[Rfam]
Rfam assigns this 134-nucleotide sequence from Patagioenas fasciata to the family "Small nucleolar RNA SNORA15".
The family's consensus secondary structure was predicted with RNAfold.
ACA15 is a member of the H/ACA class of snoRNA that guide the sites of modification of uridines to pseudouridines.
A reference for the family is Huttenhofer et al. (2001), "RNomics: an experimental approach that identifies 201 candidates for novel, small, non-messenger RNAs in mouse", EMBO J.
Its family is annotated with nucleolus and RNA processing in the Gene Ontology.
The organism belongs to Patagioenas fasciata, within Eukaryota.
It is annotated as an H/ACA-box small nucleolar RNA.
RNA sequence: GCAUGGACGAAUUCUGCACUAGCUUUCCUUGGUAGCUAAUGCAGUCAGACACUAUGCCAGAAUAAAUUCCUUUUUCACACUGAUUGGCACGCUUGUUGUAUGAGAAUGGGCAUGCCCUUGGAAGUGGGAUACAU
Numbered sequence: 001g002c003a004u005g006g007a008c009g010a011a012u013u014c015u016g017c018a019c020u021a022g023c024u025u026u027c028c029u030u031g032g033u034a035g036c037u038a039a040u041g042c043a044g045u046c047a048g049a050c051a052c053u054a055u056g057c058c059a060g061a062a063u064a065a066a067u068u069c070c071u072u073u074u075u076c077a078c079a080c081u082g083a084u085u086g087g088c089a090c091g092c093u094u095g096u097u098g099u100a101u102g103a104g105a106a107u108g109g110g111c112a113u114g115c116c117c118u119u120g121g122a123a124g125u126g127g128g129a130u131a132c133a134u
Stems, first nucleotide, its partner, number of pairs: 001057006014044005070127002072124006086116004091111004